[Rfam]
RNA sequence: ACCUGUAACGGGUCUUCACCAGAAGGUGCACCGUCAUCCACACUCACCUCCCUGCCACUACCCUUGCAGGAGCCCAGUUCGAGUCCUGUGGUGUCCACUCCACUCAUUUAGGUAACUAAUGAUGCUGGAUGGACCUAAGCAAUGAAUACAACCAGACGAGGGAAGAAAUUCUGCAGUCGGGUAUUCACCAUGGGACGGCGGCGCUGGAUUACUCCCACGAGGGUUGGGGGGCAAGUGUGGGCUGGGGUAUCGACUGGUAUUUU
Numbered sequence: 001a002c003c004u005g006u007a008a009c010g011g012g013u014c015u016u017c018a019c020c021a022g023a024a025g026g027u028g029c030a031c032c033g034u035c036a037u038c039c040a041c042a043c044u045c046a047c048c049u050c051c052c053u054g055c056c057a058c059u060a061c062c063c064u065u066g067c068a069g070g071a072g073c074c075c076a077g078u079u080c081g082a083g084u085c086c087u088g089u090g091g092u093g094u095c096c097a098c099u100c101c102a103c104u105c106a107u108u109u110a111g112g113u114a115a116c117u118a119a120u121g122a123u124g125c126u127g128g129a130u131g132g133a134c135c136u137a138a139g140c141a142a143u144g145a146a147u148a149c150a151a152c153c154a155g156a157c158g159a160g161g162g163a164a165g166a167a168a169u170u171c172u173g174c175a176g177u178c179g180g181g182u183a184u185u186c187a188c189c190a191u192g193g194g195a196c197g198g199c200g201g202c203g204c205u206g207g208a209u210u211a212c213u214c215c216c217a218c219g220a221g222g223g224u225u226g227g228g229g230g231g232c233a234a235g236u237g238u239g240g241g242c243u244g245g246g247g248u249a250u251c252g253a254c255u256g257g258u259a260u261u262u263u
Base pairs, nucleotide, nucleotide: 001013002012003011018258019257020256021255022254025251026250027249028248029247031245032244033243037241038240039239040238041237042236043235044234047231060224061223062222065219066218069215070214071213072212074207075206076205077204078203079201080200081199083196084195085194086193087192088191089190090189091188093134095132096131097130099129100128101127102126104122105121106120107119108118110117111116135139143187144186145185146184147183148182149181153180155178156177157176162171163170164169

Fungal signal recognition particle RNA: a 263-nucleotide RNA from Parastagonospora nodorum. The family's RNA type in Rfam is non-coding RNA gene. The family is grouped with related families in Rfam's "SRP clan". For this family Rfam cites "Towards the structure of the mammalian signal recognition particle" (Wild et al., Curr Opin Struct Biol, 2002). Rfam's curators put it in the seed alignment. Taxonomically the source falls in Parastagonospora nodorum (Eukaryota, Opisthokonta, Fungi, saccharomyceta).